Shown here is a 103-nucleotide RNA sequence from Terribacillus saccharophilus, a member of the family "SAM riboswitch aptamer (S box leader)". Its family is annotated with regulation of gene expression in the Gene Ontology.
[Rfam]
RNA sequence: CUCUUAUCAAGAGAAGGCGGAGGGAAUUGGCCCUAUGAAGCCCGGCAACCGGUGCAUUUGCACACGGUGCUAAUUCCAACAGCGAGAUGCUGAGGGAUAAGGG
Numbered sequence: 001c002u003c004u005u006a007u008c009a010a011g012a013g014a015a016g017g018c019g020g021a022g023g024g025a026a027u028u029g030g031c032c033c034u035a036u037g038a039a040g041c042c043c044g045g046c047a048a049c050c051g052g053u054g055c056a057u058u059u060g061c062a063c064a065c066g067g068u069g070c071u072a073a074u075u076c077c078a079a080c081a082g083c084g085a086g087a088u089g090c091u092g093a094g095g096g097a098u099a100a101g102g103g
Stems, first nucleotide, its partner, number of pairs: 001103008013043001016042003022033003027079004044071004049067002052063004075095001080092005